[Rfam]
RNA sequence: AAGUCACAGGACGAAGUGGUUGGGUCAGGGCUUCACAUUCAAUCUUUUGGAAUGGGUGUGGGUUCAAGGCUCAGGAAAGUCCCCGGGCCGUAAUCCGUAGAAAUUACGGGCUCGGAAACGAGUUCUACUUCUUGCGCGGUAAUCAAUCACGGCCUUCGGGCUGUGGGGGCAGAGACGUGUGUGGAGCCUUUGGUACUGCCUGGAGUAUAUUAGCCGAUUAACACAGUUAUCCACUUGGUCCUAAUUGGACUAACUGAACGGGGAUUACGAUCCUGUGACU
Numbered sequence: 001a002a003g004u005c006a007c008a009g010g011a012c013g014a015a016g017u018g019g020u021u022g023g024g025u026c027a028g029g030g031c032u033u034c035a036c037a038u039u040c041a042a043u044c045u046u047u048u049g050g051a052a053u054g055g056g057u058g059u060g061g062g063u064u065c066a067a068g069g070c071u072c073a074g075g076a077a078a079g080u081c082c083c084c085g086g087g088c089c090g091u092a093a094u095c096c097g098u099a100g101a102a103a104u105u106a107c108g109g110g111c112u113c114g115g116a117a118a119c120g121a122g123u124u125c126u127a128c129u130u131c132u133u134g135c136g137c138g139g140u141a142a143u144c145a146a147u148c149a150c151g152g153c154c155u156u157c158g159g160g161c162u163g164u165g166g167g168g169g170c171a172g173a174g175a176c177g178u179g180u181g182u183g184g185a186g187c188c189u190u191u192g193g194u195a196c197u198g199c200c201u202g203g204a205g206u207a208u209a210u211u212a213g214c215c216g217a218u219u220a221a222c223a224c225a226g227u228u229a230u231c232c233a234c235u236u237g238g239u240c241c242u243a244a245u246u247g248g249a250c251u252a253a254c255u256g257a258a259c260g261g262g263g264a265u266u267a268c269g270a271u272c273c274u275g276u277g278a279c280u
Base pairs, nucleotide, nucleotide: 002280003279004278005277006276007275008274009273010272011271014236015235016234017233018232019231028072029071030070031069032068033067042057043056044055045054047052077266078265081263082262083261084260096108097107098106099105109124110123111122112121113120114119126207127206128205132203133202134201136199137198140193151188152187153186175182176181238250239249240248241247
The record is a 280-nucleotide RNA from Thalictrum thalictroides, which matches "RNase MRP" in Rfam. The family's consensus secondary structure is taken from published work. The family's RNA type in Rfam is ribozyme. Its family is annotated with ribonuclease MRP complex, ribonuclease MRP activity and rRNA processing in the Gene Ontology.